[Rfam]
RNA: Guanidine-II riboswitch aptamer (mini-ykkC)
RNA sequence: GCUGCGGGACGGCCCGCAGCCGCACAACCCUUUCGCAGGACGGCCUGC
Numbered sequence: 001g002c003u004g005c006g007g008g009a010c011g012g013c014c015c016g017c018a019g020c021c022g023c024a025c026a027a028c029c030c031u032u033u034c035g036c037a038g039g040a041c042g043g044c045c046u047g048c
Stems, first nucleotide, its partner, number of pairs: 001020008035048005
Dot-bracket structure: ((((((((....))))))))..............(((((....)))))